[Rfam]
RNA: U4atac minor spliceosomal RNA
RNA sequence: GCCUUCCUUGUCAAGGGGAGCAGAGUGCGUCAAUGAACGUAUAGUGAGACCACUUAUGCUGACACCCUGUAUAUAUAUCCGCACCCACAUCAUUAGUGACUGAGUGCAAUUUUUGGAAUG
Numbered sequence: 001g002c003c004u005u006c007c008u009u010g011u012c013a014a015g016g017g018g019a020g021c022a023g024a025g026u027g028c029g030u031c032a033a034u035g036a037a038c039g040u041a042u043a044g045u046g047a048g049a050c051c052a053c054u055u056a057u058g059c060u061g062a063c064a065c066c067c068u069g070u071a072u073a074u075a076u077a078u079c080c081g082c083a084c085c086c087a088c089a090u091c092a093u094u095a096g097u098g099a100c101u102g103a104g105u106g107c108a109a110u111u112u113u114u115g116g117a118a119u120g
Stems, first nucleotide, its partner, number of pairs: 005019005020059003024054004029050003037045002081107004086102001